[Rfam]
RNA sequence: CCAGCACAUGACGAAGUGAGCGGGCUCUUUGCAGCCCUGGAAAGUCCCCGGGCCCUCGAUCGCAGAGAUGCGACCGCGGAGACGCGGAAAGUCUCAGCGCUCGCGCCCUCCUCUUCACGAGGGGGCAGAGACAAGUGUGUGGAGCCCUUUGGGCGCGAGUCGAGAUCAAAAUGGCCAAUAACACAGUUAUUCACUUGAAUCCAUCAUUGGAUUAACAGAACGGGGCUUACGAUCGUGUGCAA
Numbered sequence: 001c002c003a004g005c006a007c008a009u010g011a012c013g014a015a016g017u018g019a020g021c022g023g024g025c026u027c028u029u030u031g032c033a034g035c036c037c038u039g040g041a042a043a044g045u046c047c048c049c050g051g052g053c054c055c056u057c058g059a060u061c062g063c064a065g066a067g068a069u070g071c072g073a074c075c076g077c078g079g080a081g082a083c084g085c086g087g088a089a090a091g092u093c094u095c096a097g098c099g100c101u102c103g104c105g106c107c108c109u110c111c112u113c114u115u116c117a118c119g120a121g122g123g124g125g126c127a128g129a130g131a132c133a134a135g136u137g138u139g140u141g142g143a144g145c146c147c148u149u150u151g152g153g154c155g156c157g158a159g160u161c162g163a164g165a166u167c168a169a170a171a172u173g174g175c176c177a178a179u180a181a182c183a184c185a186g187u188u189a190u191u192c193a194c195u196u197g198a199a200u201c202c203a204u205c206a207u208u209g210g211a212u213u214a215a216c217a218g219a220a221c222g223g224g225g226c227u228u229a230c231g232a233u234c235g236u237g238u239g240c241a242a
Stems, first nucleotide, its partner, number of pairs: 004240008014196006022037005042228003046225004061072004074087005099160006111153003123147004133140001198213006
RNA: RNase MRP